[Rfam]
RNA sequence: ACGGGAACGGCACAGCCGCAAAUCUGACUCGUCGCGCGACUCUCAUUGCGCGGCUUGGGAUUGCGGACGUGC
Numbered sequence: 001a002c003g004g005g006a007a008c009g010g011c012a013c014a015g016c017c018g019c020a021a022a023u024c025u026g027a028c029u030c031g032u033c034g035c036g037c038g039a040c041u042c043u044c045a046u047u048g049c050g051c052g053g054c055u056u057g058g059g060a061u062u063g064c065g066g067a068c069g070u071g072c
Base pairs, nucleotide, nucleotide: 010072011071012070013069016066017065018064019063020062021061024059025058031054032053033052034051035050036049037048038047039046
A member of the RNA family "S15-Halobacteria ribosomal protein leader" from a halophilic archaeon, 72 nucleotides long. The match comes from Rfam's covariance-model search (75 bits). Clan: Ribosomal Protein S15 Leader clan. On this family, see Eckert and Weinberg, BMC Microbiol 2020: "Discovery of 20 novel ribosomal leader candidates in bacteria and archaea".